The record is an 88-nucleotide sequence, which matches "c-di-GMP-II-GAG riboswitch aptamer" in Rfam. It is one of the family's seed sequences. The family is grouped with related families in Rfam's "c-di-GMP_II riboswitch clan".

RNA sequence: UUAAGGAUUUGAUGCAUUGAUCCACCUAGACCCAAUACGGGCGUCAAGGGCAGGUGGGGAGCGAGUGACGCGACCGGCAGAACCGGCU
Numbered sequence: 001u002u003a004a005g006g007a008u009u010u011g012a013u014g015c016a017u018u019g020a021u022c023c024a025c026c027u028a029g030a031c032c033c034a035a036u037a038c039g040g041g042c043g044u045c046a047a048g049g050g051c052a053g054g055u056g057g058g059g060a061g062c063g064a065g066u067g068a069c070g071c072g073a074c075c076g077g078c079a080g081a082a083c084c085g086g087c088u
Base pairs, nucleotide, nucleotide: 005084006083008081009080010079011078013063014062015061022057023056024055025054026053027052031049039075040074041071042070043069044068045067